[Rfam]
RNA sequence: GGCGCUCUCGCGGGAGAGAUCGGAGCCCUUUCGGGGGCUCCGGAGCCGAAGGCGCAACCGCCCCGGAAACGCUCAGGCAAACGGACCGCGAGGACGUA
Numbered sequence: 001g002g003c004g005c006u007c008u009c010g011c012g013g014g015a016g017a018g019a020u021c022g023g024a025g026c027c028c029u030u031u032c033g034g035g036g037g038c039u040c041c042g043g044a045g046c047c048g049a050a051g052g053c054g055c056a057a058c059c060g061c062c063c064c065g066g067a068a069a070c071g072c073u074c075a076g077g078c079a080a081a082c083g084g085a086c087c088g089c090g091a092g093g094a095c096g097u098a
Base pairs, nucleotide, nucleotide: 006093007092008091009090010089011088012087013086020043021042022041023040024039025038026037027036045078046077047076048074049073052072053071054070058066059065
Dot-bracket structure: .....((((((((......((((((((........)))))))).(((((..(((...((.....))...))))).))).......)))))))).....
This 98-nucleotide RNA from Brevundimonas sp. Root1423 belongs to the Rfam family "Glycine riboswitch aptamer". The match comes from Rfam's covariance-model search (62 bits). NCBI's taxonomy places the organism under Bacteria, Alphaproteobacteria, Caulobacterales, Caulobacteraceae, Brevundimonas.